[Rfam]
RNA: MIR812 microRNA precursor family
RNA sequence: UCUAUGUGCAGCCAUGAUUUUCCGUGCACAACUUUGACCGUCCGUCUUAUUUGAAAUUUUUUUGAGUCACAUAUAAAGUACUAUUCAUGUUUUAUCAUCUCAUACCAAUAAAAAUACUAAUUAUAAAUAUUUUUCAAAUAACACGGACGGUUAACGUUGGGCAUGGAAACUUAUGGUUGCACUUAAA
Numbered sequence: 001u002c003u004a005u006g007u008g009c010a011g012c013c014a015u016g017a018u019u020u021u022c023c024g025u026g027c028a029c030a031a032c033u034u035u036g037a038c039c040g041u042c043c044g045u046c047u048u049a050u051u052u053g054a055a056a057u058u059u060u061u062u063u064g065a066g067u068c069a070c071a072u073a074u075a076a077a078g079u080a081c082u083a084u085u086c087a088u089g090u091u092u093u094a095u096c097a098u099c100u101c102a103u104a105c106c107a108a109u110a111a112a113a114a115u116a117c118u119a120a121u122u123a124u125a126a127a128u129a130u131u132u133u134u135c136a137a138a139u140a141a142c143a144c145g146g147a148c149g150g151u152u153a154a155c156g157u158u159g160g161g162c163a164u165g166g167a168a169a170c171u172u173a174u175g176g177u178u179g180c181a182c183u184u185a186a187a
Stems, first nucleotide, its partner, number of pairs: 027161001029159004034154012047141004